[Rfam]
RNA sequence: CACCGAAGCUAAAGUUGGGCCCCUGUUGGUGCGGGAGCGUCGGGUAAAAAAAGUGUCGGGAUAAAACAGUUGAUGUCUGAAAUGGGGACACUUUUUUACCGACGCUCCCGCACCAACAGGGGCCCAACUUUAGCUUCGGUGC
Numbered sequence: 001c002a003c004c005g006a007a008g009c010u011a012a013a014g015u016u017g018g019g020c021c022c023c024u025g026u027u028g029g030u031g032c033g034g035g036a037g038c039g040u041c042g043g044g045u046a047a048a049a050a051a052a053g054u055g056u057c058g059g060g061a062u063a064a065a066a067c068a069g070u071u072g073a074u075g076u077c078u079g080a081a082a083u084g085g086g087g088a089c090a091c092u093u094u095u096u097u098a099c100c101g102a103c104g105c106u107c108c109c110g111c112a113c114c115a116a117c118a119g120g121g122g123c124c125c126a127a128c129u130u131u132a133g134c135u136u137c138g139g140u141g142c
Base pairs, nucleotide, nucleotide: 001141002140003139004138005137006136007135008134009133010132011131012130013129014128015127016126017125018124019123020122021121022120023119024118025117026116027115028114029113030112031111032110033109034108035107036106037105038104039103040102041101042100043099046096047095048094049093050092053089054088056086057085064078066076067075068074

Annotation
The record is a 142-nucleotide RNA sequence from Gossypium raimondii, which matches "MIR8670 microRNA precursor family" in Rfam. It is one of the family's seed sequences. The source organism's lineage runs through Eukaryota, Streptophyta, eudicotyledons, Pentapetalae and Gossypium. Rfam links the family to the GO terms RISC complex and miRNA-mediated post-transcriptional gene silencing. Pairs were carried over by alignment from the consensus structure, which was predicted with RNAalifold.